[Rfam]
RNA sequence: ACAGUAGGACAAUCUGUCGCUUAUGUUUUUUACAUAUGAGGAAAGUCCGGGCAACACAGAGCACCAUAUUUCUUAACGGGAAGCUAUCCGUGAGGGUAGAGUAAUGUAACAGAAAAUAACCGCCUUUGAAAAAAGGUAAGGGUGAAAAGGUGAGGUAAGAGCUUACCGGUUUUUAUGGUAACAUAAAGAGCCGUACAUCUUAUGGGUUGUAAGGUUAUGUAUACCGACGUUGUAGGGCUGCUCGUCCGAUGUCGGGGGGUAAACCGCUAGAGCUUUAUGGUAACAUAAAGUCAAGAUAAAUGACAGAUUCCUUUUGAAAUGAAGGUACAGAACCCGGCUUAUCGGCCUACUGUAUUU
Dot-bracket structure: ((((((((.(((((((((.(.(((((.....))))).)....[[[.[[[[[((((...[[[[.((((((((((.....)))))(.((((....)))).)((..(((((...........((((((((....))))))..)).......((((((.......)))))).(((((((((....)))))))).)..))))))))))))))))...((((.......(((((......((((.]]]]))))...)))))......))))......((((((((....))))))))..........)))))))........................]]]]]]]].).).))))))))....
A member of the RNA family "Bacterial RNase P class A" from Coprobacter secundus, 357 nucleotides long. Lineage of the source: Bacteria > Bacteroidia > Bacteroidales > Barnesiellaceae > Coprobacter secundus. The match comes from Rfam's covariance-model search (256 bits). From the family's description: Ribonuclease P (RNase P) is a ubiquitous endoribonuclease, found in archaea, bacteria and eukarya as well as chloroplasts and mitochondria.